The family of this 144-nucleotide RNA from Musca domestica is "Small nucleolar RNA psi18S-841/snoR66".

RNA sequence: UGCAAGGGCACUCUGUGUCACAUUGAAAUUUAACCACAAAGUGAAACAAUUUGUUACCUUGCUAUAGUAAACUUGAUAUUUUAAAUUCAUCAAACCAUUUUCAAAUUUUCAAAAUGUGUUUGUAAUUAGAAUAUCUACAGUUAG
Numbered sequence: 001u002g003c004a005a006g007g008g009c010a011c012u013c014u015g016u017g018u019c020a021c022a023u024u025g026a027a028a029u030u031u032a033a034c035c036a037c038a039a040a041g042u043g044a045a046a047c048a049a050u051u052u053g054u055u056a057c058c059u060u061g062c063u064a065u066a067g068u069a070a071a072c073u074u075g076a077u078a079u080u081u082u083a084a085a086u087u088c089a090u091c092a093a094a095c096c097a098u099u100u101u102c103a104a105a106u107u108u109u110c111a112a113a114a115u116g117u118g119u120u121u122g123u124a125a126u127u128a129g130a131a132u133a134u135c136u137a138c139a140g141u142u143a144g
Stems, first nucleotide, its partner, number of pairs: 002062006010054002014048003018044004023039003068143003075135002079130002082128002089123002092120002096116004
psi18S-841 is a member of the H/ACA class of snoRNA. This family is responsible for guiding the modification of uridine 841 in Drosophila 18S rRNA to pseudouridine.
The organism belongs to Musca, within Eukaryota.
The family's RNA type in Rfam is H/ACA-box small nucleolar RNA.